Rfam assigns this 173-nucleotide RNA sequence from Selenomonas sputigena to the family "Group II catalytic intron D1-D4-3". Lineage of the source: Bacteria > Bacillati > Negativicutes > Selenomonadales > Selenomonas sputigena.
RNA sequence: UUCGUCGUGAGGCGAAAUCUGAAGGAAGUCGGCGGCAAACCUCUGGCCUGACGAACAGGAACCGCAUAGGAGGCUAUCGUUGGGGAUAAGGCCGCACUACAGGUCGAAGUCCCAUAGCUACACGGAACCAAUGGUGGUAGAUGCGGCAGGUAGAUGGAGGGAAAGAAACGUGU
Numbered sequence: 001u002u003c004g005u006c007g008u009g010a011g012g013c014g015a016a017a018u019c020u021g022a023a024g025g026a027a028g029u030c031g032g033c034g035g036c037a038a039a040c041c042u043c044u045g046g047c048c049u050g051a052c053g054a055a056c057a058g059g060a061a062c063c064g065c066a067u068a069g070g071a072g073g074c075u076a077u078c079g080u081u082g083g084g085g086a087u088a089a090g091g092c093c094g095c096a097c098u099a100c101a102g103g104u105c106g107a108a109g110u111c112c113c114a115u116a117g118c119u120a121c122a123c124g125g126a127a128c129c130a131a132u133g134g135u136g137g138u139a140g141a142u143g144c145g146g147c148a149g150g151u152a153g154a155u156g157g158a159g160g161g162a163a164a165g166a167a168a169c170g171u172g173u
Stems, first nucleotide, its partner, number of pairs: 001016006028173002032169001036165001040160006046151005062146006073138003077134007084112004090105004
A reference for the family is Bonen and Vogel (2001), "The ins and outs of group II introns", Trends Genet. It is one of the family's seed sequences.